[Rfam]
RNA sequence: GGAGGGCUGGCAGAGCGGCCGAUUGCGGCGGUCUUGAAAACCGCUAGGGGCGCGAGCUCCUCGGGGGUUCGAAUCCCCCGCCCUCC
Numbered sequence: 001g002g003a004g005g006g007c008u009g010g011c012a013g014a015g016c017g018g019c020c021g022a023u024u025g026c027g028g029c030g031g032u033c034u035u036g037a038a039a040a041c042c043g044c045u046a047g048g049g050g051c052g053c054g055a056g057c058u059c060c061u062c063g064g065g066g067g068u069u070c071g072a073a074u075c076c077c078c079c080g081c082c083c084u085c086c
Stems, first nucleotide, its partner, number of pairs: 001086007010026004015020001027045006047060005064078004
Rfam assigns this 86-nucleotide RNA sequence from Motilibacter rhizosphaerae to the family "Selenocysteine transfer RNA". On this family, see Mizutani and Goto, FEBS Lett 2000: "Eukaryotic selenocysteine tRNA has the 9/4 secondary structure". The match comes from Rfam's covariance-model search (49 bits).